[Rfam]
RNA sequence: AAAAAGGGCUUCUGUCGUGAGUGGCACACGUAGGGCAGCUCCAUUGCUCUUCGUGCGGAAUCGACAUCAAGAGAUUUCGGAAGCAUAAUUUUUUGGUACCUGGGCAGCUGGUGAUCGUUGGUAAAAAAAAAAAAAAAAAAAAAAAUGCAGAACUAUUAAAUAUUCAGUUCAUUGCAUUUUAACUGUGUAUACACCAGGCAUCCAC
Number, nucleotide and partner (000 for none) at each position: 001a000002a000003a000004a000005a000006g000007g000008g084009c083010u082011u081012c080013u026014g025015u024016c023017g022018u000019g000020a000021g000022u017023g016024g015025c014026a013027c055028a054029c053030g052031u000032a050033g049034g048035g047036c046037a045038g044039c000040u000041c000042c000043a000044u038045u037046g036047c035048u034049c033050u032051u000052c030053g029054u028055g027056c079057g078058g077059a076060a075061u074062c073063g000064a000065c000066a000067u000068c000069a000070a000071g000072a000073g062074a061075u060076u059077u058078c057079g056080g012081a011082a010083g009084c008085a000086u000087a000088a000089u000090u000091u000092u000093u000094u000095g000096g000097u000098a000099c000100c000101u000102g203103g202104g201105c000106a000107g199108c198109u197110g000111g195112u000113g194114a000115u000116c000117g000118u000119u000120g000121g000122u000123a000124a000125a000126a000127a000128a000129a000130a000131a000132a000133a000134a000135a000136a000137a000138a000139a000140a000141a000142a000143a000144a000145a000146u000147g000148c000149a000150g000151a000152a000153c000154u000155a000156u000157u000158a000159a000160a000161u000162a000163u000164u000165c000166a000167g000168u000169u000170c000171a000172u000173u000174g000175c000176a000177u000178u000179u000180u000181a000182a000183c000184u000185g000186u000187g000188u000189a000190u000191a000192c000193a000194c113195c111196a000197g109198g108199c107200a000201u104202c103203c102204a000205c000
The family of this 205-nucleotide RNA sequence from Panthera leo is "U11 spliceosomal RNA". Pairs were carried over by alignment from the consensus structure, which is taken from published work. It is annotated as a spliceosomal small nuclear RNA. On this family, see Montzka and Steitz, Proc Natl Acad Sci U S A 1988: "Additional low-abundance human small nuclear ribonucleoproteins: U11, U12, etc". It scores 100 bits against the family's covariance model. Clan: U1 clan. The source organism's lineage runs through Eukaryota, Bilateria, Craniata, Euteleostomi and Panthera.